[Rfam]
RNA sequence: AAGUGUUAUAGCUGUUUUAGAAUUGUCUAGCAGUCUUUCUGGGUUUUGUCAGAAAGGCCCU
Numbered sequence: 001a002a003g004u005g006u007u008a009u010a011g012c013u014g015u016u017u018u019a020g021a022a023u024u025g026u027c028u029a030g031c032a033g034u035c036u037u038u039c040u041g042g043g044u045u046u047u048g049u050c051a052g053a054a055a056g057g058c059c060c061u
Base pairs, nucleotide, nucleotide: 033058034057035056036055037054038053039052040051041050042049
RNA: U7 small nuclear RNA
Organism: Gorilla gorilla